RNA sequence: AUGUGGGUCGGCCCGCAGCUCCCACUAGCGGCUAUGGGGGGCGGCGGCGGGCCAGGGGGCUCCGCCGCCACAAUCCCCGCGGGCGGCGGACCGGUCCGGGAGGUGUAUCGGCACCUCCCGGACUGUG
Numbered sequence: 001a002u003g004u005g006g007g008u009c010g011g012c013c014c015g016c017a018g019c020u021c022c023c024a025c026u027a028g029c030g031g032c033u034a035u036g037g038g039g040g041g042c043g044g045c046g047g048c049g050g051g052c053c054a055g056g057g058g059g060c061u062c063c064g065c066c067g068c069c070a071c072a073a074u075c076c077c078c079g080c081g082g083g084c085g086g087c088g089g090a091c092c093g094g095u096c097c098g099g100g101a102g103g104u105g106u107a108u109c110g111g112c113a114c115c116u117c118c119c120g121g122a123c124u125g126u127g
Base pairs, nucleotide, nucleotide: 001126002125006092007091008090010053011052012051013050014049015048016047018045019044020043055060062089063088064087065086066085067084068083069082093124094123095122096121097120098119099118100117101116102115103114104113105112
RNA: Streptomyces RNA 4115